[Rfam]
RNA sequence: UGAGGAAGACAGGUAAUCGCGGAUCUCGUGAUCCGAGGAAAGUCCGAACUCCGCAGAGCAGGAUGCUGGCUAACGGCCAGUGAGGGUGACCUCAAGGAAAGUGCAACAGAAACAUACCGCCUGUGUAUUCGGGUAAGGGUGAAAUGGUGAGGUAAGAGCUCACCAGCAGCCAGGUGACUGGCUGGCUGGGCAAACCCCAUCUGGAGCAAGACUAAGCAGAAGGGACUGAUCUUUUUGAUCAGGCAGGUUGCUCGCCUGUUAUCCUUCGGGUUGGUCGCUUGAGGCGGUGGGCAACCAUCGUCCUAGAUAGAUGAUUACCGCCUGCCCGGGCGUGAGCCCGGGAGGGUACAAAAUUCGGCUUAUGGCUUCCUCAAACC
Numbered sequence: 001u002g003a004g005g006a007a008g009a010c011a012g013g014u015a016a017u018c019g020c021g022g023a024u025c026u027c028g029u030g031a032u033c034c035g036a037g038g039a040a041a042g043u044c045c046g047a048a049c050u051c052c053g054c055a056g057a058g059c060a061g062g063a064u065g066c067u068g069g070c071u072a073a074c075g076g077c078c079a080g081u082g083a084g085g086g087u088g089a090c091c092u093c094a095a096g097g098a099a100a101g102u103g104c105a106a107c108a109g110a111a112a113c114a115u116a117c118c119g120c121c122u123g124u125g126u127a128u129u130c131g132g133g134u135a136a137g138g139g140u141g142a143a144a145u146g147g148u149g150a151g152g153u154a155a156g157a158g159c160u161c162a163c164c165a166g167c168a169g170c171c172a173g174g175u176g177a178c179u180g181g182c183u184g185g186c187u188g189g190g191c192a193a194a195c196c197c198c199a200u201c202u203g204g205a206g207c208a209a210g211a212c213u214a215a216g217c218a219g220a221a222g223g224g225a226c227u228g229a230u231c232u233u234u235u236u237g238a239u240c241a242g243g244c245a246g247g248u249u250g251c252u253c254g255c256c257u258g259u260u261a262u263c264c265u266u267c268g269g270g271u272u273g274g275u276c277g278c279u280u281g282a283g284g285c286g287g288u289g290g291g292c293a294a295c296c297a298u299c300g301u302c303c304u305a306g307a308u309a310g311a312u313g314a315u316u317a318c319c320g321c322c323u324g325c326c327c328g329g330g331c332g333u334g335a336g337c338c339c340g341g342g343a344g345g346g347u348a349c350a351a352a353a354u355u356c357g358g359c360u361u362a363u364g365g366c367u368u369c370c371u372c373a374a375a376c377c
Base pairs, nucleotide, nucleotide: 001373002372003371004370005369006368007367008366010364011363012319013318014317015316016315017314018313020035021034022033023032024031025030040361041360042359044358045357046356047355048354049206050205051204052203056253057252058251059250061202062201063200064199065198066080067079068078069077070076081095082093083092084091085090096197097196101195102194103191104190117138118137119134120133121132122131123130146164147163148162149161150160151159166186167184168183169182170181171180172179173178210276211275212274213273219267220266221265222264223263224262244258245257246256247255248254283302284301285300286299287298288297289296290295

The record is a 377-nucleotide RNA sequence from Dictyobacter aurantiacus, which matches "Bacterial RNase P class A" in Rfam. The organism belongs to Dictyobacter, within Bacteria. From the family's description: Ribonuclease P (RNase P) is a ubiquitous endoribonuclease, found in archaea, bacteria and eukarya as well as chloroplasts and mitochondria. Its family is annotated with tRNA processing, ribonuclease P activity and dimeric ribonuclease P complex in the Gene Ontology. Rfam classes the family as a ribozyme.